[Rfam]
RNA: skipping-rope RNA
RNA sequence: GUGCUUUGAAGUAGAGAUUGUGCUGCUACACGCCUUCUGGGCCAAAAGAAAUGCGGGAAGGGGCACACCCGCCAAAGCAC
Numbered sequence: 001g002u003g004c005u006u007u008g009a010a011g012u013a014g015a016g017a018u019u020g021u022g023c024u025g026c027u028a029c030a031c032g033c034c035u036u037c038u039g040g041g042c043c044a045a046a047a048g049a050a051a052u053g054c055g056g057g058a059a060g061g062g063g064c065a066c067a068c069c070c071g072c073c074a075a076a077g078c079a080c
Stems, first nucleotide, its partner, number of pairs: 001080008011029004020066005031048001032042004053072005